[Rfam]
RNA sequence: CUUCGUUCUCGGGGCGGGGUGUAAUUCCCCACCGGCGGUAAAGACUUUACAUAAGUUAAAUUCUAAGCCCGCGAGCGCCUUCAAGAAACUUUUCUUUUAGGGUCAGCAGAUCUGGUGUAAUUCCAGAGCCGACGGUUAUAGUCCGGAUGAUAGAGAGCGCGU
Numbered sequence: 001c002u003u004c005g006u007u008c009u010c011g012g013g014g015c016g017g018g019g020u021g022u023a024a025u026u027c028c029c030c031a032c033c034g035g036c037g038g039u040a041a042a043g044a045c046u047u048u049a050c051a052u053a054a055g056u057u058a059a060a061u062u063c064u065a066a067g068c069c070c071g072c073g074a075g076c077g078c079c080u081u082c083a084a085g086a087a088a089c090u091u092u093u094c095u096u097u098u099a100g101g102g103u104c105a106g107c108a109g110a111u112c113u114g115g116u117g118u119a120a121u122u123c124c125a126g127a128g129c130c131g132a133c134g135g136u137u138a139u140a141g142u143c144c145g146g147a148u149g150a151u152a153g154a155g156a157g158c159g160c161g162u
Stems, first nucleotide, its partner, number of pairs: 004159007017029003031142002033131002035072004067129002075107002111127005133145003

The record is a 162-nucleotide RNA sequence from Marinomonas sp. MWYL1, which matches "FMN riboswitch aptamer (RFN element)" in Rfam.
Lineage of the source: Bacteria > Pseudomonadati > Oceanospirillales > Oceanospirillaceae > Marinomonas.
From the family's description: The RFN element is a highly conserved domain that is found frequently in the 5'-untranslated regions of prokaryotic mRNAs that encode for flavin mononucleotide (FMN) biosynthesis and transport proteins. This element is a metabolite-dependent riboswitch that directly binds FMN in the absence of proteins. In Bacillus subtilis, the riboswitch most likely controls gene expression by causing premature transcription termination within the 5' untranslated region of the ribDEAHT operon and precluding access to the ribosome-binding site of ypaA mRNA.The FMN riboswitch structure, reported in present an FMN-bound six-stem junction, adopts a butterfly-like scaffold, stapled together by opposingly directed but nearly identically folded peripheral domains.
The sequence is in the family's curated seed alignment.